Burkholderia sRNA 11: a 205-nucleotide RNA sequence from Trinickia fusca.
Pairs were carried over by alignment from the consensus structure, which was predicted with RNAfold.
It is annotated as a small RNA.
Identified by RNA-seq, RACE and Northern blot. Strongly expressed in biofilm. Identified in as ncRNA13. It is complimentary by 40 nucleotides with a gene encoding a regulatory protein (BCAL1948). ncS11 is strongly up-regulated in the stationary phase and biofilms, while BCAL1948 is down-regulated under these conditions.
Its family is annotated with bacterial biofilm matrix in the Gene Ontology.
A reference for the family is Sass et al. (2017), "Identification of small RNAs abundant in Burkholderia cenocepacia biofilms reveal putative regulators with a potential role in carbon and iron metabolism", Sci Rep.
[Rfam]
RNA sequence: UCCCCUUCGCAGCGGAGGUAUCCGGUGCGAAACCAGAUGGCUGCUUACUUAGCAAGCCUGAUAGGGCUGAAAGCGCUGUCCGUGAUGACCACGGCAUGUCGCAUGCGGUGACUCAGACCACGCCGCGUGGCAACGGAGCCCGCCGCCCGAAGGCGCCGAGUGCGCAUGAAAAAAGACCCUCAUCGCCGGAUGAGGGUCUUUUACU
Numbered sequence: 001u002c003c004c005c006u007u008c009g010c011a012g013c014g015g016a017g018g019u020a021u022c023c024g025g026u027g028c029g030a031a032a033c034c035a036g037a038u039g040g041c042u043g044c045u046u047a048c049u050u051a052g053c054a055a056g057c058c059u060g061a062u063a064g065g066g067c068u069g070a071a072a073g074c075g076c077u078g079u080c081c082g083u084g085a086u087g088a089c090c091a092c093g094g095c096a097u098g099u100c101g102c103a104u105g106c107g108g109u110g111a112c113u114c115a116g117a118c119c120a121c122g123c124c125g126c127g128u129g130g131c132a133a134c135g136g137a138g139c140c141c142g143c144c145g146c147c148c149g150a151a152g153g154c155g156c157c158g159a160g161u162g163c164g165c166a167u168g169a170a171a172a173a174a175g176a177c178c179c180u181c182a183u184c185g186c187c188g189g190a191u192g193a194g195g196g197u198c199u200u201u202u203a204c205u
Stems, first nucleotide, its partner, number of pairs: 003036001006031005013024003039058003042054004064148004073102003076098001080094005105143003110139001112138003118129001153165004171202014